A member of the RNA family "mir-72 microRNA precursor family" from Caenorhabditis japonica, 75 nucleotides long.
RNA sequence: GCUAGGCAAGAUGUUGGCAUAGCUGAACUAAAACCGCCGGCGUCAGGUAUCAGCUUCGCCACAUUCUGCCAAGCG
Numbered sequence: 001g002c003u004a005g006g007c008a009a010g011a012u013g014u015u016g017g018c019a020u021a022g023c024u025g026a027a028c029u030a031a032a033a034c035c036g037c038c039g040g041c042g043u044c045a046g047g048u049a050u051c052a053g054c055u056u057c058g059c060c061a062c063a064u065u066c067u068g069c070c071a072a073g074c075g
Base pairs, nucleotide, nucleotide: 005070006069007068011064012063013062014061016060017059018058022054023053024052025051026050